[Rfam]
RNA sequence: GCUGAAUGCCGUGUGUUUUCUGUUGCGGUGAAUCCCACUAUGCGUAGGGGCAAAACAGCAAGUCGUACUGCAGCAGCUUAUGCGAGUCACGGUGGCUGACCAAAGGCUCACGGGGAGGCACCCCGCACCGCAACACCCAUUACAGGCCCAUGCAUUCGCGUGGGCUUUCUUU
Number, nucleotide and partner (000 for none) at each position: 001g000002c000003u000004g000005a000006a000007u000008g000009c000010c000011g000012u000013g000014u142015g141016u000017u000018u000019u000020c000021u000022g134023u133024u000025g131026c130027g129028g128029u127030g126031a000032a000033u000034c000035c050036c049037a000038c047039u046040a000041u000042g000043c000044g000045u000046a039047g038048g000049g036050g035051c000052a000053a000054a000055a000056c070057a069058g068059c000060a000061a000062g000063u000064c000065g000066u000067a000068c058069u057070g056071c000072a000073g083074c082075a081076g000077c000078u000079u000080a000081u075082g074083c073084g109085a108086g107087u106088c000089a000090c000091g000092g101093u000094g000095g000096c000097u000098g000099a000100c000101c092102a000103a000104a000105g000106g087107c086108u085109c084110a000111c125112g124113g123114g122115g121116a000117g000118g000119c000120a000121c115122c114123c113124c112125g111126c030127a029128c028129c027130g026131c025132a000133a023134c022135a000136c000137c000138c000139a000140u000141u015142a014143c000144a167145g166146g165147c164148c163149c162150a161151u160152g159153c000154a000155u000156u000157c000158g000159c152160g151161u150162g149163g148164g147165c146166u145167u144168u000169c000170u000171u000172u000